The family of this 196-nucleotide RNA from Eubacterium plexicaudatum is "Group II catalytic intron D1-D4-3".
Lineage of the source: Bacteria > Clostridia > Eubacteriaceae > Eubacterium > Eubacterium plexicaudatum.
The literature on the family includes a 2001 paper in Trends Genet by Bonen and Vogel, "The ins and outs of group II introns".

[Rfam]
RNA sequence: UCCGCUGUGAGGCGGAAUCUGAAGGAAGCCAGAUGUAGGGAGCAUACUAACCUGCGGGCAAAUCUCCGGUCUGACGAACAGAAAUCACAUAGGAGGUUAUGCAUGAGGGUAAGACUGCAAUAUAAACCGAAGCCCAGUAACUACACGGAAUCAUGCAUGAUAGAUGUGGCAGAUGGAUGGAUAGAAAGAAACGUGU
Numbered sequence: 001u002c003c004g005c006u007g008u009g010a011g012g013c014g015g016a017a018u019c020u021g022a023a024g025g026a027a028g029c030c031a032g033a034u035g036u037a038g039g040g041a042g043c044a045u046a047c048u049a050a051c052c053u054g055c056g057g058g059c060a061a062a063u064c065u066c067c068g069g070u071c072u073g074a075c076g077a078a079c080a081g082a083a084a085u086c087a088c089a090u091a092g093g094a095g096g097u098u099a100u101g102c103a104u105g106a107g108g109g110u111a112a113g114a115c116u117g118c119a120a121u122a123u124a125a126a127c128c129g130a131a132g133c134c135c136a137g138u139a140a141c142u143a144c145a146c147g148g149a150a151u152c153a154u155g156c157a158u159g160a161u162a163g164a165u166g167u168g169g170c171a172g173a174u175g176g177a178u179g180g181a182u183a184g185a186a187a188g189a190a191a192c193g194u195g196u
Stems, first nucleotide, its partner, number of pairs: 001016006050196002053193002059188001063183001065181004069174005085169006096161003100157007107135004113128001116125001